[Rfam]
RNA sequence: AGAGUAGGCGCAGGCGGUUGCAGAUCAGUUUCGUUGAAACUGGUUUGAGGAAAGUCCGGACUCCCGAAAGACCAAACUUGCUGGAUAACGUCCAGUGCGAGCGAUCGUGAGGAUAGUGCCACAGAAAGAUACCGCCUGGGCUAGGGACUAGGGACGCUUGAACUAGGGACUGGGAAAGAAUCUUCCUAAUCCCCAGUACCCAAUCCCCAGUACCCAAUCCCCGGUAAGGGUGCAAAGGUGCGGUAAGAGCGCACCAGCAGCGUUGAGAAGCGCUGGCUCGGUAAACCCCGGUUGGGAGCAAGGCGAGAGGAACUACGGUUGGUCUUUUACCAGUUCCGUUAUAAAAGAGCCGCUAGAGGCGUUUGGUAACAAGCGUCCCAGAUAGAUAACUGCCCUCGCAAGAGAACAGAACCCGGCUUAUGUCCGACUCUCUCC
Numbered sequence: 001a002g003a004g005u006a007g008g009c010g011c012a013g014g015c016g017g018u019u020g021c022a023g024a025u026c027a028g029u030u031u032c033g034u035u036g037a038a039a040c041u042g043g044u045u046u047g048a049g050g051a052a053a054g055u056c057c058g059g060a061c062u063c064c065c066g067a068a069a070g071a072c073c074a075a076a077c078u079u080g081c082u083g084g085a086u087a088a089c090g091u092c093c094a095g096u097g098c099g100a101g102c103g104a105u106c107g108u109g110a111g112g113a114u115a116g117u118g119c120c121a122c123a124g125a126a127a128g129a130u131a132c133c134g135c136c137u138g139g140g141c142u143a144g145g146g147a148c149u150a151g152g153g154a155c156g157c158u159u160g161a162a163c164u165a166g167g168g169a170c171u172g173g174g175a176a177a178g179a180a181u182c183u184u185c186c187u188a189a190u191c192c193c194c195a196g197u198a199c200c201c202a203a204u205c206c207c208c209a210g211u212a213c214c215c216a217a218u219c220c221c222c223g224g225u226a227a228g229g230g231u232g233c234a235a236a237g238g239u240g241c242g243g244u245a246a247g248a249g250c251g252c253a254c255c256a257g258c259a260g261c262g263u264u265g266a267g268a269a270g271c272g273c274u275g276g277c278u279c280g281g282u283a284a285a286c287c288c289c290g291g292u293u294g295g296g297a298g299c300a301a302g303g304c305g306a307g308a309g310g311a312a313c314u315a316c317g318g319u320u321g322g323u324c325u326u327u328u329a330c331c332a333g334u335u336c337c338g339u340u341a342u343a344a345a346a347g348a349g350c351c352g353c354u355a356g357a358g359g360c361g362u363u364u365g366g367u368a369a370c371a372a373g374c375g376u377c378c379c380a381g382a383u384a385g386a387u388a389a390c391u392g393c394c395c396u397c398g399c400a401a402g403a404g405a406a407c408a409g410a411a412c413c414c415g416g417c418u419u420a421u422g423u424c425c426g427a428c429u430c431u432c433u434c435c
Base pairs, nucleotide, nucleotide: 001431002430003429004428005427007425008424010423011422012421013394014393015392016391017390018389019388021047022046023045024044025043026042027041028040029039052419053418054417056416057415058414059413061298062297063296064295070330075293076292077291079290080289081095082094083093084092085091096110097108098107099106100105111288112287116286117285118282119281120280132229133228134225135224136223138221139220140219142217237255238254239253240252241251242250257277258275259274260273261272262271263270264269302351303350304349312342315339316338317337321336322335324333325332358377359376360375361374362373363372364371365370
This 435-nucleotide sequence from Tolypothrix sp. NIES-4075 belongs to the Rfam family "Bacterial RNase P class A". The family's RNA type in Rfam is ribozyme. NCBI's taxonomy places the organism under Bacteria, Bacillati, Cyanophyceae, Nostocales, Tolypothrix.